[Rfam]
RNA sequence: UUUUCAUUAGUUUUUAUCAGAUUCCUGUUCUGAUAAAAGUUAGUGAAGAAAACUUUGCUAACGUAACGGACUCGCCGUGAUUGACACCGAGCCGAUACGUUUUUUU
Numbered sequence: 001u002u003u004u005c006a007u008u009a010g011u012u013u014u015u016a017u018c019a020g021a022u023u024c025c026u027g028u029u030c031u032g033a034u035a036a037a038a039g040u041u042a043g044u045g046a047a048g049a050a051a052a053c054u055u056u057g058c059u060a061a062c063g064u065a066a067c068g069g070a071c072u073c074g075c076c077g078u079g080a081u082u083g084a085c086a087c088c089g090a091g092c093c094g095a096u097a098c099g100u101u102u103u104u105u106u
Stems, first nucleotide, its partner, number of pairs: 002048018060101006067094003071091004077087003
This 106-nucleotide RNA from Vagococcus lutrae belongs to the Rfam family "23S methyl RNA motif". On this family, see Weinberg et al., Nucleic Acids Res 2007: "Identification of 22 candidate structured RNAs in bacteria using the CMfinder comparative genomics pipeline". Rfam links the family to the GO term regulation of gene expression.